[Rfam]
RNA sequence: UGACCACACUCUGGAGAGAUCGGCACGCCCAUCCACCGGGCGAUGCCGGCGCCGAAGGGGCACGAAGCCGCGCGGACCACCCUCCCCGCCCGCGCGCUUUAAAACUCUCAGGCAGAAGGACAGAGCGGGCAUC
Number, nucleotide and partner (000 for none) at each position: 001u000002g000003a000004c000005c000006a000007c127008a000009c125010u124011c123012u122013g121014g000015a000016g000017a000018g000019a000020u049021c048022g047023g046024c045025a044026c000027g000028c000029c000030c000031a000032u000033c000034c000035a000036c000037c000038g000039g000040g000041c000042g000043a000044u025045g024046c023047c022048g021049g020050c000051g113052c112053c111054g109055a108056a000057g000058g107059g106060g105061c000062a000063c000064g100065a099066a098067g097068c096069c000070g000071c000072g000073c000074g000075g000076a000077c000078c000079a000080c000081c000082c000083u000084c000085c000086c000087c000088g000089c000090c000091c000092g000093c000094g000095c000096g068097c067098u066099u065100u064101a000102a000103a000104a000105c060106u059107c058108u055109c054110a000111g053112g052113c051114a000115g000116a000117a000118g000119g000120a000121c013122a012123g011124a010125g009126c000127g007128g000129g000130c000131a000132u000133c000
Rfam assigns this 133-nucleotide RNA from Thermomonas haemolytica to the family "Glycine riboswitch aptamer".
It scores 53 bits against the family's covariance model.
NCBI's taxonomy places the organism under Bacteria, Pseudomonadota, Lysobacterales, Lysobacteraceae, Thermomonas.